[Rfam]
RNA: Glycine riboswitch aptamer
Organism: Paenibacillus sp. D9
RNA sequence: CAUCUCUGGAGAGAAUUCCGUGGCCGCGCACAGGCGCGCAUGGAAUCACCCAAGGGGAAACUCGCGGAGCGGGAAGCGAGGCAACUCUCAGGUACAAAGGACAGAGCGGAAGAA
Numbered sequence: 001c002a003u004c005u006c007u008g009g010a011g012a013g014a015a016u017u018c019c020g021u022g023g024c025c026g027c028g029c030a031c032a033g034g035c036g037c038g039c040a041u042g043g044a045a046u047c048a049c050c051c052a053a054g055g056g057g058a059a060a061c062u063c064g065c066g067g068a069g070c071g072g073g074a075a076g077c078g079a080g081g082c083a084a085c086u087c088u089c090a091g092g093u094a095c096a097a098a099g100g101a102c103a104g105a106g107c108g109g110a111a112g113a114a
Base pairs, nucleotide, nucleotide: 001109004106005105006104007103008102015046016045017044018043019042020041021040022039048093049092050091052088055087056086057085061080062079063078064077065076